[Rfam]
RNA sequence: UGUCAGAUAGCUUAUCAGACUGGUGUUGGCUGUUUCACUGCAUGGCAACAACAGUUUGUAGGCUGUCUGACA
Dot-bracket structure: .......((((((((..(((((.(((((.(.............).))))).))))).)))))))).......
Numbered sequence: 001u002g003u004c005a006g007a008u009a010g011c012u013u014a015u016c017a018g019a020c021u022g023g024u025g026u027u028g029g030c031u032g033u034u035u036c037a038c039u040g041c042a043u044g045g046c047a048a049c050a051a052c053a054g055u056u057u058g059u060a061g062g063c064u065g066u067c068u069g070a071c072a
Stems, first nucleotide, its partner, number of pairs: 008065008018056005024050005030044001